[Rfam]
Plant small nucleolar RNA R71: a 108-nucleotide sequence from Brassica carinata. Its family is annotated with RNA processing and nucleolus in the Gene Ontology. The family has 25 seed sequences and 278,378 matches in Rfam 15.1. The source organism's lineage runs through Eukaryota, Streptophytina, Gunneridae, malvids and Brassica.
RNA sequence: AAUCCGUGGUGUGGACAGUCUCGCUGGAAGAACUUGAAUCUGAUCCACGCAUCUUUGAAAGACUCUCUAGUCUCCUGCGCGAAUGUAGCAAUUUUGCUCCUCAAGUCU
Number, nucleotide and partner (000 for none) at each position: 001a108002a000003u000004c105005c000006g102007u000008g000009g000010u000011g000012u000013g000014g000015a000016c000017a000018g000019u000020c000021u000022c000023g000024c000025u000026g000027g000028a000029a000030g000031a000032a000033c000034u000035u000036g000037a000038a000039u000040c000041u000042g000043a000044u000045c000046c000047a000048c000049g000050c000051a000052u000053c000054u000055u000056u000057g074058a073059a000060a071061g000062a000063c000064u000065c000066u000067c000068u000069a000070g000071u060072c000073u058074c057075c000076u000077g000078c000079g000080c000081g000082a000083a000084u000085g000086u000087a000088g000089c000090a000091a000092u000093u000094u000095u000096g000097c000098u000099c000100c000101u000102c006103a000104a000105g004106u000107c000108u001